[Rfam]
RNA sequence: AGUAAGACGAGGCUUCGUACCCUGUUUUCAUGUCUGUAGCCAUGUCUAUGGGCUCUGGAGUUGGCACGUGGGUGAGGGCCUGCU
Numbered sequence: 001a002g003u004a005a006g007a008c009g010a011g012g013c014u015u016c017g018u019a020c021c022c023u024g025u026u027u028u029c030a031u032g033u034c035u036g037u038a039g040c041c042a043u044g045u046c047u048a049u050g051g052g053c054u055c056u057g058g059a060g061u062u063g064g065c066a067c068g069u070g071g072g073u074g075a076g077g078g079c080c081u082g083c084u
Stems, first nucleotide, its partner, number of pairs: 001084004006079001008077001012073004018066001021064001023063002026060003032053008
Dot-bracket structure: ((((.(.(...((((..(..(.((.(((...((((((((......))))))))....))).))).)...))))...).).))))
Shown here is an 84-nucleotide sequence from Saimiri boliviensis, a member of the family "mir-571 microRNA precursor family". Rfam links the family to the GO terms miRNA-mediated post-transcriptional gene silencing and RISC complex.